[Rfam]
RNA sequence: CUGAUUAACUGAAUAAUACCGAAGACAGUAUGUGGCGCAUGCCUUAAUAUCAUACCGAGGAUAAAGUGAUGAAAGUCAAUUUACACUCCCUCUAUGUCUACGGUGACAUGGGGUUUUUUUAUGCCAUAA
Numbered sequence: 001c002u003g004a005u006u007a008a009c010u011g012a013a014u015a016a017u018a019c020c021g022a023a024g025a026c027a028g029u030a031u032g033u034g035g036c037g038c039a040u041g042c043c044u045u046a047a048u049a050u051c052a053u054a055c056c057g058a059g060g061a062u063a064a065a066g067u068g069a070u071g072a073a074a075g076u077c078a079a080u081u082u083a084c085a086c087u088c089c090c091u092c093u094a095u096g097u098c099u100a101c102g103g104u105g106a107c108a109u110g111g112g113g114u115u116u117u118u119u120u121a122u123g124c125c126a127u128a129a
Stems, first nucleotide, its partner, number of pairs: 028055005034043003090113009
Dot-bracket structure: ...........................(((((.(((....))).......)))))..................................(((((((((......)))))))))................
Background
The family of this 129-nucleotide RNA sequence from Alkalibacterium sp. AK22 is "Ribosomal protein L10 leader". Lineage of the source: Bacteria > Bacillati > Lactobacillales > Carnobacteriaceae > Alkalibacterium. It is annotated as a cis-regulatory leader. The base pairs follow the family's consensus structure, which was predicted with CMfinder. The match comes from Rfam's covariance-model search (70 bits). From the family's description: This family is a putative r-protein leader autoregulatory structure found in B. subtilis and other low-GC Gram-positive bacteria. It is located in the 5' untranslated regions of mRNAs encoding ribosomal proteins L10 and L12 (rplJ-rplL).